Shown here is a 196-nucleotide RNA sequence from Clostridium tarantellae, a member of the family "Group II catalytic intron D1-D4-5". For this family Rfam cites "The ins and outs of group II introns" (Bonen and Vogel, Trends Genet, 2001). NCBI's taxonomy places the organism under Bacteria, Bacillati, Bacillota, Clostridia, Clostridium. It scores 143 bits against the family's covariance model. From the family's description: Group II introns are found in rRNA, tRNA and mRNA of organelles in fungi, plants and protists, and also in mRNA in bacteria. Its family is annotated with Group II intron splicing in the Gene Ontology.
RNA sequence: UAGAACUGAUAUUACGAAAGGUAGAAUGAUAGGGUAACGCCUUGAAAUGCCUUCUCAAAGGUACGACUAGCGUUUUGGUAGGUAAAUACUAAAAGGUUAGAAGCUCGUUAAAACGACUGAGAGCCAUCCUAACAGAUAGUGCUGAGGAAAUGCGAACUGGAGGCAGUCGAGUGGUGAUAGGUCUAGAGUCUAAAAA
Number, nucleotide and partner (000 for none) at each position: 001u000002a000003g000004a000005a000006c000007u000008g000009a000010u000011a000012u000013u000014a000015c000016g000017a000018a053019a052020g051021g050022u049023a048024g000025a000026a000027u000028g000029a000030u000031a043032g042033g041034g040035u000036a000037a000038c000039g000040c034041c033042u032043u031044g000045a000046a000047a000048u023049g022050c021051c020052u019053u018054c188055u187056c186057a000058a000059a000060g000061g000062u000063a108064c107065g106066a105067c100068u099069a098070g097071c096072g000073u094074u093075u092076u091077g090078g089079u088080a087081g000082g000083u000084a000085a000086a000087u080088a079089c078090u077091a076092a075093a074094a073095g000096g071097u070098u069099a068100g067101a000102a000103g000104c000105u066106c065107g064108u063109u000110a000111a000112a000113a000114c000115g183116a182117c181118u180119g000120a000121g000122a175123g000124c174125c173126a172127u171128c147129c146130u145131a000132a000133c000134a143135g142136a000137u000138a000139g000140u000141g000142c135143u134144g000145a130146g129147g128148a000149a000150a000151u170152g000153c169154g168155a000156a167157c166158u165159g164160g000161a000162g000163g000164c159165a158166g157167u156168c154169g153170a151171g127172u126173g125174g124175u122176g000177a000178u000179a000180g118181g117182u116183c115184u000185a000186g056187a055188g054189u000190c000191u000192a000193a000194a000195a000196a000